[Rfam]
RNA: Ascomycota telomerase RNA, nucleotides 1136 to 1517
Organism: Ustilaginoidea virens
RNA sequence: CACAUACAGAAGGAAUUUCGGCUGUUGGCUACCAAGUUUCGACUUUCUGCAGCGUACUUUGACUCGGAUGCCAGGAUAUCUGCAAGUUAUGGCUUCCGAAUCAUAUGUUUGAGAUGGAGGCCGAGAAACCCCAGAUAUUCCAUCACUCUGGUUUGACUAGCGAGUUACUGGCAUAUGAGACAGCCCGGGACCCAUCUCGAGUUGGAGUCAAAGCUUUGUGCUUGUCCGGUGCCGUCGACGAUCCAGCGAUGGCCUUACAAAUCGGAAGGGAUGGGAUAAUGUGGCAAUUGCAGGCCGAACGAUUGGUUUCGAAGGGCAGACCGGUUGGGGAUAGGUAGCCCUGGUUGUCCUUGCGCCUGCAAUGGUGGGAGGACAACCCCCC
Numbered sequence: 001c002a003c004a005u006a007c008a009g010a011a012g013g014a015a016u017u018u019c020g021g022c023u024g025u026u027g028g029c030u031a032c033c034a035a036g037u038u039u040c041g042a043c044u045u046u047c048u049g050c051a052g053c054g055u056a057c058u059u060u061g062a063c064u065c066g067g068a069u070g071c072c073a074g075g076a077u078a079u080c081u082g083c084a085a086g087u088u089a090u091g092g093c094u095u096c097c098g099a100a101u102c103a104u105a106u107g108u109u110u111g112a113g114a115u116g117g118a119g120g121c122c123g124a125g126a127a128a129c130c131c132c133a134g135a136u137a138u139u140c141c142a143u144c145a146c147u148c149u150g151g152u153u154u155g156a157c158u159a160g161c162g163a164g165u166u167a168c169u170g171g172c173a174u175a176u177g178a179g180a181c182a183g184c185c186c187g188g189g190a191c192c193c194a195u196c197u198c199g200a201g202u203u204g205g206a207g208u209c210a211a212a213g214c215u216u217u218g219u220g221c222u223u224g225u226c227c228g229g230u231g232c233c234g235u236c237g238a239c240g241a242u243c244c245a246g247c248g249a250u251g252g253c254c255u256u257a258c259a260a261a262u263c264g265g266a267a268g269g270g271a272u273g274g275g276a277u278a279a280u281g282u283g284g285c286a287a288u289u290g291c292a293g294g295c296c297g298a299a300c301g302a303u304u305g306g307u308u309u310c311g312a313a314g315g316g317c318a319g320a321c322c323g324g325u326u327g328g329g330g331a332u333a334g335g336u337a338g339c340c341c342u343g344g345u346u347g348u349c350c351u352u353g354c355g356c357c358u359g360c361a362a363u364g365g366u367g368g369g370a371g372g373a374c375a376a377c378c379c380c381c382c
Stems, first nucleotide, its partner, number of pairs: 189209003192205003211223004